[Rfam]
RNA: Bacterial RNase P class A
Organism: Saccharomonospora marina
RNA sequence: CGAGUUGGCAGGGCGGUCGCGGUUGUCGCGAACAGCGAUGAUCGAGGAAAGUCCGGACUCCGCAGGGCAGGGUGGUUGCUAACGGCAACCCGGGGUGACCCGCGGGAAAGUGCCACAGAAAGCAAACCGCCUGGUCACCAGACCAGGUAAGGGUGAAACGGUGGUGUAAGAGACCACCAGCGUCCCGGGUGACCGGGGCGGCUCGGUAAACCCCACCCGGAGCAAGGCCAAGAGGGAGCGAUACCGCUCCUGCGCAGGCGAUUGAGGGCUGCCCGUCCGAGGCCUGCGGGUAGGCCGCUCGAGCCUGCCGGCGACGGCAGGCCCAGAUGGAUGGCCGCCCAACCCGGCCGCCCAAGGGCGGUCGGGGGGACAGAAUCCGGCUUACAUGCCAACUCGUCCA
Numbered sequence: 001c002g003a004g005u006u007g008g009c010a011g012g013g014c015g016g017u018c019g020c021g022g023u024u025g026u027c028g029c030g031a032a033c034a035g036c037g038a039u040g041a042u043c044g045a046g047g048a049a050a051g052u053c054c055g056g057a058c059u060c061c062g063c064a065g066g067g068c069a070g071g072g073u074g075g076u077u078g079c080u081a082a083c084g085g086c087a088a089c090c091c092g093g094g095g096u097g098a099c100c101c102g103c104g105g106g107a108a109a110g111u112g113c114c115a116c117a118g119a120a121a122g123c124a125a126a127c128c129g130c131c132u133g134g135u136c137a138c139c140a141g142a143c144c145a146g147g148u149a150a151g152g153g154u155g156a157a158a159c160g161g162u163g164g165u166g167u168a169a170g171a172g173a174c175c176a177c178c179a180g181c182g183u184c185c186c187g188g189g190u191g192a193c194c195g196g197g198g199c200g201g202c203u204c205g206g207u208a209a210a211c212c213c214c215a216c217c218c219g220g221a222g223c224a225a226g227g228c229c230a231a232g233a234g235g236g237a238g239c240g241a242u243a244c245c246g247c248u249c250c251u252g253c254g255c256a257g258g259c260g261a262u263u264g265a266g267g268g269c270u271g272c273c274c275g276u277c278c279g280a281g282g283c284c285u286g287c288g289g290g291u292a293g294g295c296c297g298c299u300c301g302a303g304c305c306u307g308c309c310g311g312c313g314a315c316g317g318c319a320g321g322c323c324c325a326g327a328u329g330g331a332u333g334g335c336c337g338c339c340c341a342a343c344c345c346g347g348c349c350g351c352c353c354a355a356g357g358g359c360g361g362u363c364g365g366g367g368g369g370a371c372a373g374a375a376u377c378c379g380g381c382u383u384a385c386a387u388g389c390c391a392a393c394u395c396g397u398c399c400a
Stems, first nucleotide, its partner, number of pairs: 001396010011385001012339007020044009049383003053380005058222004065274004070218005075089005090104001091102004105213002110211002112207003127152002129148008160178006180202001181200008226296004254287006266278004303322008